[Rfam]
RNA sequence: CCUCUGGAGAGAGCUGAAAUAUCAGAACGAUAUAAACCAGCCGCCGAAGGAGCAACUUUGAUCGUCAGAUCGGAGGAAACUCUCAGGCAAAAGGACAGAGG
Numbered sequence: 001c002c003u004c005u006g007g008a009g010a011g012a013g014c015u016g017a018a019a020u021a022u023c024a025g026a027a028c029g030a031u032a033u034a035a036a037c038c039a040g041c042c043g044c045c046g047a048a049g050g051a052g053c054a055a056c057u058u059u060g061a062u063c064g065u066c067a068g069a070u071c072g073g074a075g076g077a078a079a080c081u082c083u084c085a086g087g088c089a090a091a092a093g094g095a096c097a098g099a100g101g
Stems, first nucleotide, its partner, number of pairs: 001101006013041004043088003046084002050082003056075008